[Rfam]
Shown here is a 153-nucleotide sequence from Phaseolus vulgaris, a member of the family "U4 spliceosomal RNA". The match comes from Rfam's covariance-model search (107 bits). The source organism's lineage runs through Eukaryota, Streptophytina, Embryophyta, Magnoliopsida and Phaseolus.
RNA sequence: AUCUUUGCGCUUGGGGCAAUGACGCAGCUAAUGAGGUACUAACCGAGGCGCGUCUAUUGCUGGUUGAAAACUAUUUCCAAACCCCCUCUGAGGCCUUUGAUUGUCUUAGGCCUUGAGAAUUUCUGUAAGAGCUCCUUAUUAUUGGGUAAAGCU
Numbered sequence: 001a002u003c004u005u006u007g008c009g010c011u012u013g014g015g016g017c018a019a020u021g022a023c024g025c026a027g028c029u030a031a032u033g034a035g036g037u038a039c040u041a042a043c044c045g046a047g048g049c050g051c052g053u054c055u056a057u058u059g060c061u062g063g064u065u066g067a068a069a070a071c072u073a074u075u076u077c078c079a080a081a082c083c084c085c086c087u088c089u090g091a092g093g094c095c096u097u098u099g100a101u102u103g104u105c106u107u108a109g110g111c112c113u114u115g116a117g118a119a120u121u122u123c124u125g126u127a128a129g130a131g132c133u134c135c136u137u138a139u140u141a142u143u144g145g146g147u148a149a150a151g152c153u
Base pairs, nucleotide, nucleotide: 021054022053023052024051025050027049028048029047035044036043037042086117087116088115091113092112093111094110095109096108099105100104130153131152132151133150